[Rfam]
RNA sequence: CCCAGCGGCAGUCAGCUGCGCAGGCCUGUCCCGUGCCUGAGCCAGUGUUACUCUGCUGGGAGAGGAAAGCACUGUCAGUGUGGCUGGGCUCUGGGAGACACUGUUUUAGUGUCUGCUGAUGUCAGGCUGUGACAGUGCUGUGCCCUUUCUGAGAGUGGACUUUGCCCACACACACUGGGGCAGUCCUAGUCUGGGGGCAAACACU
Number, nucleotide and partner (000 for none) at each position: 001c060002c059003c058004a057005g056006c055007g054008g053009c000010a000011g051012u050013c000014a000015g046016c045017u044018g043019c000020g000021c039022a038023g037024g036025c035026c000027u000028g000029u000030c000031c000032c000033g000034u000035g025036c024037c023038u022039g021040a000041g000042c000043c018044a017045g016046u015047g000048u000049u000050a012051c011052u000053c008054u007055g006056c005057u004058g003059g002060g001061a000062g000063a000064g000065g000066a000067a000068a000069g138070c137071a136072c135073u134074g133075u132076c131077a130078g000079u000080g000081u000082g000083g128084c000085u126086g000087g000088g000089c000090u119091c118092u000093g116094g000095g114096a000097g112098a000099c111100a110101c109102u108103g000104u000105u000106u000107u000108a102109g101110u100111g099112u097113c000114u095115g000116c093117u000118g091119a090120u000121g000122u000123c000124a000125g000126g085127c000128u083129g000130u077131g076132a075133c074134a073135g072136u071137g070138c069139u000140g000141u199142g198143c197144c196145c195146u194147u193148u000149c000150u000151g000152a000153g000154a000155g000156u000157g186158g185159a184160c000161u182162u000163u180164g000165c178166c177167c000168a000169c000170a000171c000172a000173c000174a000175c000176u000177g166178g165179g000180g163181c000182a161183g000184u159185c158186c157187u000188a000189g000190u000191c000192u000193g147194g146195g145196g144197g143198c142199a141200a000201a000202c000203a000204c000205u000